[Rfam]
RNA sequence: CGGCACGUAGCGCAGCCUGGUAGCGCACCGUCAUGGGGUGUCGGGGGUCGGAGGUUCAAAUCCUCUCGUGCCGA
Dot-bracket structure: (((((((..((((.........)))).(((.(.......).))).....(((((.......)))))))))))).